This 259-nucleotide part of an RNA from bacterium 1xD42-67 belongs to the Rfam family "Bacterial large subunit ribosomal RNA".
[Rfam]
RNA sequence: AGAGAUUUGAAGGGAGCUGUCCUUAGUACGAGAGGACCGGGAUGGACAGACCUCUGGUGCAUCAGUUGUCCUGCCAAGGGCACAGCUGGGUAGCUACGUCUGGACGAGAUAAACGCUGAAAGCAUCUAAGCGUGAAACUCCCCCUAAGAUAAGAUCUCUCAUCCUUUAUGGAGUAAGGCUCGACGUAGACUAUGUCGUUGAUAGGUCGGAGGUGGAAGCACGGCAACGUGUGCAGCUGACCGAUACUAAUAAGCCGAGG
Numbered sequence: 001a002g003a004g005a006u007u008u009g010a011a012g013g014g015a016g017c018u019g020u021c022c023u024u025a026g027u028a029c030g031a032g033a034g035g036a037c038c039g040g041g042a043u044g045g046a047c048a049g050a051c052c053u054c055u056g057g058u059g060c061a062u063c064a065g066u067u068g069u070c071c072u073g074c075c076a077a078g079g080g081c082a083c084a085g086c087u088g089g090g091u092a093g094c095u096a097c098g099u100c101u102g103g104a105c106g107a108g109a110u111a112a113a114c115g116c117u118g119a120a121a122g123c124a125u126c127u128a129a130g131c132g133u134g135a136a137a138c139u140c141c142c143c144c145u146a147a148g149a150u151a152a153g154a155u156c157u158c159u160c161a162u163c164c165u166u167u168a169u170g171g172a173g174u175a176a177g178g179c180u181c182g183a184c185g186u187a188g189a190c191u192a193u194g195u196c197g198u199u200g201a202u203a204g205g206u207c208g209g210a211g212g213u214g215g216a217a218g219c220a221c222g223g224c225a226a227c228g229u230g231u232g233c234a235g236c237u238g239a240c241c242g243a244u245a246c247u248a249a250u251a252a253g254c255c256g257a258g259g
Stems, first nucleotide, its partner, number of pairs: 001159008011145004017045007047102005055096003062089005067082006106140003113133005162172003174257001177255004181197005202248003205244005211237002218231005
A search with the family's covariance model found it, with a score of 2781 bits.